Rfam assigns this 104-nucleotide sequence from Clostridium aciditolerans to the family "Purine riboswitch aptamer".

RNA sequence: AAAUAAUCUAAAAUGUUCACUUAUAUAAAUCUAGCAAUAUGGGCUGGAUGUCUCUACCGAGCUACCUCAAAUAGUUGUAGGCUAUAAGUGUUUUAAUGGCUAUA
Numbered sequence: 001a002a003a004u005a006a007u008c009u010a011a012a013a014u015g016u017u018c019a020c021u022u023a024u025a026u027a028a029a030u031c032u033a034g035c036a037a038u039a040u041g042g043g044c045u046g047g048a049u050g051u052c053u054c055u056a057c058c059g060a061g062c063u064a065c066c067u068c069a070a071a072u073a074g075u076u077g078u079a080g081g082c083u084a085u086a087a088g089u090g091u092u093u094u095a096a097u098g099g100c101u102a103u104a
Stems, first nucleotide, its partner, number of pairs: 018090008029049007058080001060076005

Background: The family's consensus secondary structure is taken from published work. A search with the family's covariance model found it, with a score of 72 bits.